mir-166 microRNA precursor family: a 164-nucleotide sequence from Macleaya cordata. A reference for the family is Reinhart et al. (2002), "MicroRNAs in plants", Genes Dev. The source organism's lineage runs through Eukaryota, Streptophytina, Mesangiospermae, Papaveraceae and Macleaya. The base pairs follow the family's consensus structure, which was predicted with PFOLD. Rfam's curators write: This family represents the plant microRNA (miRNA) precursor mir-166. A search with the family's covariance model found it, with a score of 84 bits.
RNA sequence: UUUGAGGGGAAUGUUGUCUGGCUCGAGGCCACGAACUCAAUCAAAUCGACAUCCUGAUCCAUUGAUCUCUAAAUCUCUAAUAGAUCUAGAAAGUUAGAUAGAUCAGGAUUGUUGUUAAUUUUUUUUGUGUUAGUGUCGUCGGACCAGGCUUCAUUCCCCCCAAU
Number, nucleotide and partner (000 for none) at each position: 001u000002u163003u162004g161005a000006g159007g158008g157009g156010a155011a154012u153013g152014u000015u000016g149017u148018c147019u146020g145021g144022c000023u000024c141025g140026a139027g000028g000029c000030c000031a000032c000033g000034a000035a000036c000037u000038c000039a000040a000041u000042c000043a000044a000045a000046u000047c000048g000049a000050c000051a000052u000053c000054c000055u000056g000057a000058u000059c000060c000061a000062u000063u000064g000065a000066u000067c000068u000069c000070u000071a000072a000073a000074u000075c000076u000077c000078u000079a000080a000081u000082a000083g000084a000085u000086c000087u000088a000089g000090a000091a000092a000093g000094u000095u000096a000097g000098a000099u000100a000101g000102a000103u000104c000105a000106g000107g000108a000109u000110u000111g000112u000113u000114g000115u000116u000117a000118a000119u000120u000121u000122u000123u000124u000125u000126u000127g000128u000129g000130u000131u000132a000133g000134u000135g000136u000137c000138g000139u026140c025141g024142g000143a000144c021145c020146a019147g018148g017149c016150u000151u000152c013153a012154u011155u010156c009157c008158c007159c006160c000161c004162a003163a002164u000